Notes:
Shown here is a 106-nucleotide RNA sequence from Geomonas silvestris, a member of the family "SAM riboswitch aptamer (S box leader)". Pairs were carried over by alignment from the consensus structure, which is taken from published work. The source organism's lineage runs through Bacteria, Thermodesulfobacteriota, Desulfuromonadia, Geobacteraceae and Geomonas.

RNA sequence: AACUUAUCUAGAGCGAUCGAGGGACUGGCCCGAUGACGUCGCGGCAACCUCCCUUCAGGGGAAGGUGCCAAAUCCUGCGGAGCGGCAACGUUCCGGUAGAUAAGGA
Numbered sequence: 001a002a003c004u005u006a007u008c009u010a011g012a013g014c015g016a017u018c019g020a021g022g023g024a025c026u027g028g029c030c031c032g033a034u035g036a037c038g039u040c041g042c043g044g045c046a047a048c049c050u051c052c053c054u055u056c057a058g059g060g061g062a063a064g065g066u067g068c069c070a071a072a073u074c075c076u077g078c079g080g081a082g083c084g085g086c087a088a089c090g091u092u093c094c095g096g097u098a099g100a101u102a103a104g105g106a
Stems, first nucleotide, its partner, number of pairs: 003104006013042005021031003025077001027075002043069004048065002050061004073098001078095006